[Rfam]
RNA sequence: AUUUAACAAAUAGAGCAGGCGAUACAUUUAUAUUUAAUGUGUGGGGCUGGGCCAGCAAUUACUGGCAGCAGGGAAAAUACCUGUGGGACUAUA
Numbered sequence: 001a002u003u004u005a006a007c008a009a010a011u012a013g014a015g016c017a018g019g020c021g022a023u024a025c026a027u028u029u030a031u032a033u034u035u036a037a038u039g040u041g042u043g044g045g046g047c048u049g050g051g052c053c054a055g056c057a058a059u060u061a062c063u064g065g066c067a068g069c070a071g072g073g074a075a076a077a078u079a080c081c082u083g084u085g086g087g088a089c090u091a092u093a
Stems, first nucleotide, its partner, number of pairs: 010092004016087001018048003022042006051066005068084005
RNA: NiCo (Nickel/Cobalt) riboswitch aptamer